[Rfam]
RNA: Small nucleolar RNA SNORA15
Organism: Trichechus manatus
Nucleotides: 142
Base pairs, nucleotide, nucleotide: 001056002055003054004053005052006051014043015042016041017040019038069135070134071133072131074129075128076127077126078125084124086122087121088120089119090118091117092116093115094114095113096112
Number, partner (000 for none) and nucleotide at each position: 001056g002055c003054a004053u005052g006051g007000c008000u009000g010000a011000a012000u013000a014043c015042u016041g017040u018000a019038u020000u021000a022000u023000u024000u025000u026000u027000a028000u029000c030000a031000g032000u033000a034000a035000u036000u037000u038019g039000c040017a041016c042015a043014g044000c045000c046000a047000g048000a049000c050000a051006c052005c053004a054003u055002g056001c057000a058000a059000a060000a061000g062000u063000a064000u065000u066000a067000u068000c069135u070134u071133c072131c073000c074129u075128u076127u077126a078125a079000a080000a081000u082000g083000u084124u085000u086122a087121u088120g089119a090118u091117g092116u093115a094114u095113u096112u097000u098000a099000a100000g101000u102000u103000u104000u105000u106000u107000u108000u109000u110000c111000a112096g113095g114094g115093u116092a117091u118090a119089u120088c121087a122086u123000u124084a125078u126077u127076a128075a129074a130000a131072g132000u133071g134070a135069a136000u137000a138000c139000a140000a141000a142000u